[Rfam]
Shown here is a 69-nucleotide RNA sequence from Saimiri boliviensis, a member of the family "Small nucleolar RNA SNORD113/SNORD114 family". Pairs were carried over by alignment from the consensus structure, which is taken from published work. The literature on the family includes a 2002 paper in Hum Mol Genet by Cavaille et al., "Identification of tandemly-repeated C/D snoRNA genes at the imprinted human 14q32 domain reminiscent of those at the Prader-Willi/Angelman syndrome region". The organism belongs to Saimiri boliviensis, within Eukaryota. From the family's description: The imprinted human domain at 14q32 contains two clusters of tandemly repeated small nucleolar RNAs named 14q(I) and 14q(II) snoRNAs. These two clusters are named SNORD113 and SNORD114 respectively in the HGNC approved gene symbol nomenclature. The snoRNAs found in both clusters are clearly related and are represented here by a single family.
RNA sequence: UGGAUUGAUGUGACUAUUGGUGACAUAUAAGUCAUAUGAUGAAUGUGUGUCUGGAACUCUGAGGUCCAU
Numbered sequence: 001u002g003g004a005u006u007g008a009u010g011u012g013a014c015u016a017u018u019g020g021u022g023a024c025a026u027a028u029a030a031g032u033c034a035u036a037u038g039a040u041g042a043a044u045g046u047g048u049g050u051c052u053g054g055a056a057c058u059c060u061g062a063g064g065u066c067c068a069u
Base pairs, nucleotide, nucleotide: 002067003066004065005064006063